RNA sequence: UAUUUCGGUUCGCAGGCUAAAGGCGUCACGUCCUGUGACAACGCCUGCAUGACCCACAUCCUGUGGG
Numbered sequence: 001u002a003u004u005u006c007g008g009u010u011c012g013c014a015g016g017c018u019a020a021a022g023g024c025g026u027c028a029c030g031u032c033c034u035g036u037g038a039c040a041a042c043g044c045c046u047g048c049a050u051g052a053c054c055c056a057c058a059u060c061c062u063g064u065g066g067g
Stems, first nucleotide, its partner, number of pairs: 012048006025039005053067005
Dot-bracket structure: ...........((((((.......(((((.....)))))...))))))....(((((.....)))))
Rfam assigns this 67-nucleotide RNA from Bacillus sp. V5-8f to the family "Bacillaceae-1 RNA". It is annotated as a small RNA. The match comes from Rfam's covariance-model search (76 bits).